Bacteroidales-1 6S-Bacteroidales RNA suggested: a 181-nucleotide RNA from Barnesiella sp. An55.
Rfam describes the family as follows. Bacteroidales-1 was first reported in a comparative genomics-based approach of genome and metagenome sequences from Weinberg et al. 2010 In a high-resolution transcriptome map study of Bacteroides thetaiotaomicron, Ryan et al. 2020 report this sRNA as 6S RNA homologue of Bacteroides, in the study they obtain evidence of small product RNAs (pRNAs) related to 6S function.
The family's consensus secondary structure is taken from published work.
The match comes from Rfam's covariance-model search (151 bits).
RNA sequence: GGUCGUAUCAGAGUAGAUUGGGAAACUCAUCAAAAAUUAUGAAAUGCCGAGACACGCUUUCCGUUCCAAUGGCGGGCCACAACCUUUCGAGGUUUGCUUUGCACGGUGGAUUACAAAGGGGCGGAGGCCCUCAAAUCCUGUCUUUCGGAGUUUCAUCGCAUCCUUUGAUACGACCCCUUAU
Numbered sequence: 001g002g003u004c005g006u007a008u009c010a011g012a013g014u015a016g017a018u019u020g021g022g023a024a025a026c027u028c029a030u031c032a033a034a035a036a037u038u039a040u041g042a043a044a045u046g047c048c049g050a051g052a053c054a055c056g057c058u059u060u061c062c063g064u065u066c067c068a069a070u071g072g073c074g075g076g077c078c079a080c081a082a083c084c085u086u087u088c089g090a091g092g093u094u095u096g097c098u099u100u101g102c103a104c105g106g107u108g109g110a111u112u113a114c115a116a117a118g119g120g121g122c123g124g125a126g127g128c129c130c131u132c133a134a135a136u137c138c139u140g141u142c143u144u145u146c147g148g149a150g151u152u153u154c155a156u157c158g159c160a161u162c163c164u165u166u167g168a169u170a171c172g173a174c175c176c177c178u179u180a181u
Stems, first nucleotide, its partner, number of pairs: 056128003060125008070115002077109004083092003095103003